[Rfam]
This 78-nucleotide RNA from Onychorhynchus coronatus belongs to the Rfam family "Small nucleolar RNA SNORD69". Rfam describes the family as follows. snoRNA HBII-210 belongs to the C/D family of snoRNAs. It is the human orthologue of the mouse MBII-210 and is predicted to guide the 2'O-ribose methylation of large 28S rRNA on residue G4464. It scores 53 bits against the family's covariance model. The pairing is the family consensus, mapped onto this sequence. Gene Ontology terms of the family: nucleolus and RNA processing.
RNA sequence: UGCACAAAGCACAUGAUGACAAAACACUGGAACUGAGUCUGUAUGAUGUCCAUUCAAUCCAACACUGAGCUUUGUGUC
Number, nucleotide and partner (000 for none) at each position: 001u000002g077003c076004a075005c074006a073007a072008a071009g070010c069011a000012c000013a000014u000015g000016a000017u000018g000019a000020c000021a000022a000023a000024a000025c000026a000027c000028u000029g000030g000031a000032a000033c000034u000035g000036a000037g000038u000039c000040u000041g000042u000043a000044u000045g000046a000047u000048g000049u000050c000051c000052a000053u000054u000055c000056a000057a000058u000059c000060c000061a000062a000063c000064a000065c000066u000067g000068a000069g010070c009071u008072u007073u006074g005075u004076g003077u002078c000